[Rfam]
RNA sequence: UCACCGUCGGGCUCGGAUUCGCUUGGUGCAGGUCGGGACACAAAUCACUGGUGCUUUUGCCUUAUUGGUUUGUGAGCAGGGAUUGGCUCCCGCCUUGCAUCAACUGAAUCGGAGCCUCCAAUGGUG
Numbered sequence: 001u002c003a004c005c006g007u008c009g010g011g012c013u014c015g016g017a018u019u020c021g022c023u024u025g026g027u028g029c030a031g032g033u034c035g036g037g038a039c040a041c042a043a044a045u046c047a048c049u050g051g052u053g054c055u056u057u058u059g060c061c062u063u064a065u066u067g068g069u070u071u072g073u074g075a076g077c078a079g080g081g082a083u084u085g086g087c088u089c090c091c092g093c094c095u096u097g098c099a100u101c102a103a104c105u106g107a108a109u110c111g112g113a114g115c116c117u118c119c120a121a122u123g124g125u126g
Stems, first nucleotide, its partner, number of pairs: 013113002017109004023103010034092005041085001